[Rfam]
RNA sequence: AGAAAAAAGCAGAAGCAACCCGCUUCUCGCCUAGUGGAUUUACAAUUCGCAGGCAGAUGAUAUUUAUUUCGAAUUGAUGAAGUGAAGAUUAACCCGGGUAGCUUUGUAUAGGCUACUCGGUUUUUUUCUGCAUU
Dot-bracket structure: ..........((((((.....)))))).(((...(((((.....)))))..))).......................................(((((((((((.....)))))))))))..............
Shown here is a 134-nucleotide RNA sequence from Liquorilactobacillus cacaonum, a member of the family "Ribosomal protein L20 leader". By type it is a cis-regulatory leader. This family is a putative r-protein leader autoregulatory structure found in B. subtilis and other low-GC Gram-positive bacteria. It is located in the 5' untranslated regions of mRNAs encoding initiation factor 3 followed by ribosomal proteins L35 and L20 (infC-rpmI-rplT). A Rho-independent transcription terminator structure that is probably involved in regulation is included at the 3' end. Taxonomically the source falls in Liquorilactobacillus cacaonum (Bacteria, Bacillati, Bacilli, Liquorilactobacillus).